[Rfam]
Rfam assigns this 97-nucleotide sequence from Parendozoicomonas haliclonae to the family "Bacterial small signal recognition particle RNA". About the family: The signal recognition particle (SRP) is a universally conserved ribonucleoprotein involved in the co-translational targeting of proteins to membranes. The organism belongs to Parendozoicomonas, within Bacteria. Pairs were carried over by alignment from the consensus structure, which is taken from published work. It is annotated as a non-coding RNA gene.
Nucleotides: 097
Base pairs, nucleotide, nucleotide: 004091005090006089007088008087010083011082012081013080014079015075017074018073019072021070022069024066025065026064027063028062034059035058036057042051043050044049
Number, partner (000 for none) and nucleotide at each position: 001000u002000g003000c004091c005090g006089g007088u008087c009000c010083u011082c012081u013080c014079g015075c016000a017074a018073u019072g020000g021070g022069c023000a024066g025065c026064u027063g028062u029000g030000a031000a032000c033000u034059c035058c036057g037000c038000c039000a040000g041000g042051c043050c044049c045000g046000g047000a048000a049044g050043g051042g052000a053000g054000c055000a056000a057036c058035g059034g060000u061000a062028g063027c064026a065025g066024u067000g068000c069022g070021c071000a072019c073018a074017u075015g076000u077000g078000c079014c080013g081012a082011g083010a084000u085000g086000u087008g088007g089006c090005u091004g092000g093000c094000g095000g096000g097000u
Annotation: The match comes from Rfam's covariance-model search (75 bits).